Nucleotides: 107
Base pairs, nucleotide, nucleotide: 002107003106004105005104006103008101011098012097013096014095015094016093017092018091019090020089021088023086024085025084026083028082029081030080031079032078
Number, partner (000 for none) and nucleotide at each position: 001000a002107g003106a004105g005104g006103a007000g008101g009000c010000a011098u012097c013096c014095a015094a016093a017092g018091g019090g020089a021088u022000c023086g024085c025084a026083u027000u028082g029081a030080u031079c032078c033000g034000a035000a036000c037000u038000a039000g040000a041000u042000c043000u044000c045000c046000u047000u048000g049000u050000a051000a052000a053000a054000g055000c056000a057000u058000u059000g060000a061000g062000g063000u064000u065000c066000u067000g068000u069000u070000a071000u072000g073000a074000g075000u076000a077000u078032g079031g080030a081029u082028c083026a084025u085024g086023c087000g088021a089020u090019c091018c092017u093016u094015u095014u096013g097012g098011a099000a100000u101008c102000c103006u104005c105004c106003u107002c